[Rfam]
RNA sequence: GGCUGUUCUCAGGGCGGGGCGAAAUUCCCCACCGGCGGUAAGCGGUCAGACCCGCAAGCCCGCGAGCGCCGCGCCGGUUUCGGAGCGGGUCAGCAGAUCAGGUGCGAUGCCUGAGCCGACGGUCACAGUCCGGAUGAAAGAGAACCCAG
Numbered sequence: 001g002g003c004u005g006u007u008c009u010c011a012g013g014g015c016g017g018g019g020c021g022a023a024a025u026u027c028c029c030c031a032c033c034g035g036c037g038g039u040a041a042g043c044g045g046u047c048a049g050a051c052c053c054g055c056a057a058g059c060c061c062g063c064g065a066g067c068g069c070c071g072c073g074c075c076g077g078u079u080u081c082g083g084a085g086c087g088g089g090u091c092a093g094c095a096g097a098u099c100a101g102g103u104g105c106g107a108u109g110c111c112u113g114a115g116c117c118g119a120c121g122g123u124c125a126c127a128g129u130c131c132g133g134a135u136g137a138a139a140g141a142g143a144a145c146c147c148a149g
Stems, first nucleotide, its partner, number of pairs: 005145006017029003031129002033118002035063004058116002066094002098114005120132003